[Rfam]
RNA: Small nucleolar RNA SNORD45
RNA sequence: GGUCAAGGAUGCUCUGCAUGUAUUAUCUGACAUGAAAGCUGAUGUGGAGAACACUGGCUCUGGGAUUACACUGAGACCUU
Numbered sequence: 001g002g003u004c005a006a007g008g009a010u011g012c013u014c015u016g017c018a019u020g021u022a023u024u025a026u027c028u029g030a031c032a033u034g035a036a037a038g039c040u041g042a043u044g045u046g047g048a049g050a051a052c053a054c055u056g057g058c059u060c061u062g063g064g065a066u067u068a069c070a071c072u073g074a075g076a077c078c079u080u
Base pairs, nucleotide, nucleotide: 001078002077003076004075